A member of the RNA family "TPP riboswitch aptamer (THI element)" from Chloroflexus aurantiacus, 114 nucleotides long. The base pairs follow the family's consensus structure, which is taken from published work. Gene Ontology term of the family: thiamine pyrophosphate binding. Taxonomically the source falls in Chloroflexus aurantiacus (Bacteria, Bacillati, Chloroflexota, Chloroflexia). A search with the family's covariance model found it, with a score of 61 bits.
RNA sequence: CAGCGUGUAUGAGGGAGAUCGGGGAGCCGGGCUGAGAGGAUGGUCGCUAUCCACCAUCGACCUCGUGAACCUGCUCUGGGUAAUGCCAGCGAAGGGAAUACACGGUGGUUUAUG
Numbered sequence: 001c002a003g004c005g006u007g008u009a010u011g012a013g014g015g016a017g018a019u020c021g022g023g024g025a026g027c028c029g030g031g032c033u034g035a036g037a038g039g040a041u042g043g044u045c046g047c048u049a050u051c052c053a054c055c056a057u058c059g060a061c062c063u064c065g066u067g068a069a070c071c072u073g074c075u076c077u078g079g080g081u082a083a084u085g086c087c088a089g090c091g092a093a094g095g096g097a098a099u100a101c102a103c104g105g106u107g108g109u110u111u112a113u114g
Base pairs, nucleotide, nucleotide: 006102007101008100009099010098011064012063013062014061017032019030020029021028039058040057041056042055043054070095071094072093076089077088078087079086